[Rfam]
RNA: c-di-GMP-I riboswitch aptamer
Organism: Thermanaerosceptrum fracticalcis
RNA sequence: CACUGAUAAAGGCAAACCUGGCGAAAGCCAGGGACGCAAAGCCACGAGUCUAAAGUCCUUGCGGGGGCCAUGAUGGUCGGGUUGCCGGU
Numbered sequence: 001c002a003c004u005g006a007u008a009a010a011g012g013c014a015a016a017c018c019u020g021g022c023g024a025a026a027g028c029c030a031g032g033g034a035c036g037c038a039a040a041g042c043c044a045c046g047a048g049u050c051u052a053a054a055g056u057c058c059u060u061g062c063g064g065g066g067g068c069c070a071u072g073a074u075g076g077u078c079g080g081g082u083u084g085c086c087g088g089u
Stems, first nucleotide, its partner, number of pairs: 012037002017032006040083004045079003048074003055068004